[Rfam]
RNA: mir-14 microRNA precursor family
RNA sequence: AGUGGGGGUGAGAAACUGGCUUGGCUGUGUACACAGAUAGUCAGUCUUUUUCUCUCUCCUAUC
Dot-bracket structure: .(((((((.((((.(..((((..(((((........))))).))))..).)))).))))))).